[Rfam]
The record is a 139-nucleotide RNA sequence from Drosophila virilis, which matches "Small nucleolar RNA psi18S-1377" in Rfam. The organism belongs to Drosophila, within Eukaryota. Rfam's curators write: psi18S-1377 is a member of the H/ACA class of snoRNA. This family is responsible for guiding the modification of uridines 1377 and 1279 to pseudouridine in Drosophila 18S rRNA. Gene Ontology terms of the family: RNA processing and nucleolus.
RNA sequence: CUGUCCCCGUGUUAUUUGCGGCACGUUCACAAAGCGCCGUGAUUGUCAAAGGGGACGCAUAGCAAUUUGCCAAUAACUCGUUAUUGUGCGCCAAUUACGCAUCCUUGCGGGCGCACAUCUCCAUAUAUUGGCUAUAUAU
Numbered sequence: 001c002u003g004u005c006c007c008c009g010u011g012u013u014a015u016u017u018g019c020g021g022c023a024c025g026u027u028c029a030c031a032a033a034g035c036g037c038c039g040u041g042a043u044u045g046u047c048a049a050a051g052g053g054g055a056c057g058c059a060u061a062g063c064a065a066u067u068u069g070c071c072a073a074u075a076a077c078u079c080g081u082u083a084u085u086g087u088g089c090g091c092c093a094a095u096u097a098c099g100c101a102u103c104c105u106u107g108c109g110g111g112c113g114c115a116c117a118u119c120u121c122c123a124u125a126u127a128u129u130g131g132c133u134a135u136a137u138a139u
Stems, first nucleotide, its partner, number of pairs: 002057006010048002016042007085117003089113004